A member of the RNA family "Small nucleolar RNA SNORA55" from Merops nubicus, 136 nucleotides long.
[Rfam]
RNA sequence: GCAUCUGGAUCUUCCCCACUCCUUGUGAUGUAAGUGCUGGACUGGAGACACACACGAUGCAAGAGGAGAGCAGAGGAAAUCCAGACAAGAUCCCUUUCACCACAGUGGGACUUGUCUCUACACCUUUGCAACAUGU
Dot-bracket structure: (((((.......((.(((..((................))..))).)).......))))).........((((((.......(((((((.......(((......)))..)))))))......)))))).......
Numbered sequence: 001g002c003a004u005c006u007g008g009a010u011c012u013u014c015c016c017c018a019c020u021c022c023u024u025g026u027g028a029u030g031u032a033a034g035u036g037c038u039g040g041a042c043u044g045g046a047g048a049c050a051c052a053c054a055c056g057a058u059g060c061a062a063g064a065g066g067a068g069a070g071c072a073g074a075g076g077a078a079a080u081c082c083a084g085a086c087a088a089g090a091u092c093c094c095u096u097u098c099a100c101c102a103c104a105g106u107g108g109g110a111c112u113u114g115u116c117u118c119u120a121c122a123c124c125u126u127u128g129c130a131a132c133a134u135g136u
Stems, first nucleotide, its partner, number of pairs: 001060005013048002016045003021040002070129006083117007097108003

About this RNA:
Rfam's curators write: ACA55 is a member of the H/ACA class of snoRNA that guide the sites of modification of uridines to pseudouridines. By type it is an H/ACA-box small nucleolar RNA. Pairs were carried over by alignment from the consensus structure, which was predicted with PFOLD. A search with the family's covariance model found it, with a score of 89 bits. Its family is annotated with nucleolus and RNA processing in the Gene Ontology.